Rfam assigns this 120-nucleotide RNA from Streptomyces kanasensis to the family "Streptomyces-metH RNA". Rfam classes the family as a small RNA. A search with the family's covariance model found it, with a score of 105 bits.
RNA sequence: CCGUCCGCCACGUGGGACGCCGUGUCCGCCCCGGGGGAGGGGCGGUUACGCUGACGACGUGCGCCUCCCCGACGGGGGCGCAAAGCCGACAGCCGUCGCACUCCAGGGAGCACCUCCAUG
Numbered sequence: 001c002c003g004u005c006c007g008c009c010a011c012g013u014g015g016g017a018c019g020c021c022g023u024g025u026c027c028g029c030c031c032c033g034g035g036g037g038a039g040g041g042g043c044g045g046u047u048a049c050g051c052u053g054a055c056g057a058c059g060u061g062c063g064c065c066u067c068c069c070c071g072a073c074g075g076g077g078g079c080g081c082a083a084a085g086c087c088g089a090c091a092g093c094c095g096u097c098g099c100a101c102u103c104c105a106g107g108g109a110g111c112a113c114c115u116c117c118a119u120g
Stems, first nucleotide, its partner, number of pairs: 060082004065077004085099002088097003